[Rfam]
RNA sequence: UAUUUUCUUCGGGGAGGGGUGAAAUUCCCUACCGGCGGUAUAGCCCGCGAGCCUUGGAAAAAGGCUGAACUGGUGUAAUUCCAGUGCCGACAGUCAGAGUCUGGAUGGGAGAAGCAAUAU
Numbered sequence: 001u002a003u004u005u006u007c008u009u010c011g012g013g014g015a016g017g018g019g020u021g022a023a024a025u026u027c028c029c030u031a032c033c034g035g036c037g038g039u040a041u042a043g044c045c046c047g048c049g050a051g052c053c054u055u056g057g058a059a060a061a062a063g064g065c066u067g068a069a070c071u072g073g074u075g076u077a078a079u080u081c082c083a084g085u086g087c088c089g090a091c092a093g094u095c096a097g098a099g100u101c102u103g104g105a106u107g108g109g110a111g112a113a114g115c116a117a118u119a120u
Base pairs, nucleotide, nucleotide: 004117005116007114008113009112010111017029018028019027031100032099033089034088035048036047037046038045043087044086051065052064053063069085070084071083072082073081091103092102093101
Shown here is a 120-nucleotide RNA from Peptoclostridium acidaminophilum, a member of the family "FMN riboswitch aptamer (RFN element)". About the family: The RFN element is a highly conserved domain that is found frequently in the 5'-untranslated regions of prokaryotic mRNAs that encode for flavin mononucleotide (FMN) biosynthesis and transport proteins. This element is a metabolite-dependent riboswitch that directly binds FMN in the absence of proteins. The base pairs follow the family's consensus structure, which is taken from published work.